[Rfam]
RNA sequence: ACCACCCUUUUCUUGGGGUUGCGUACUGUCCAAUAGCGCAUAGCGAGGGCAGCACUGCUAACCCUAAACAACACACCCGCAUCAACUAGAGCUUUGCUUUACCUUGGUGCAAUUUUUGGAACA
Numbered sequence: 001a002c003c004a005c006c007c008u009u010u011u012c013u014u015g016g017g018g019u020u021g022c023g024u025a026c027u028g029u030c031c032a033a034u035a036g037c038g039c040a041u042a043g044c045g046a047g048g049g050c051a052g053c054a055c056u057g058c059u060a061a062c063c064c065u066a067a068a069c070a071a072c073a074c075a076c077c078c079g080c081a082u083c084a085a086c087u088a089g090a091g092c093u094u095u096g097c098u099u100u101a102c103c104u105u106g107g108u109g110c111a112a113u114u115u116u117u118g119g120a121a122c123a
Stems, first nucleotide, its partner, number of pairs: 006018004021058003026052006036044002079110006087101006

Shown here is a 123-nucleotide RNA from Aotus nancymaae, a member of the family "U4atac minor spliceosomal RNA". On this family, see Lorkovic et al., RNA 2005: "Evolutionary conservation of minor U12-type spliceosome between plants and humans". Taxonomically the source falls in Aotus (Eukaryota, Bilateria, Euteleostomi, Platyrrhini). About the family: U4atac is an essential component of the minor U12-type spliceosome complex which is required for removal of the rarer class of eukaryotic introns (AT-AC, U12-type). The family's consensus secondary structure is taken from published work. The match comes from Rfam's covariance-model search (96 bits).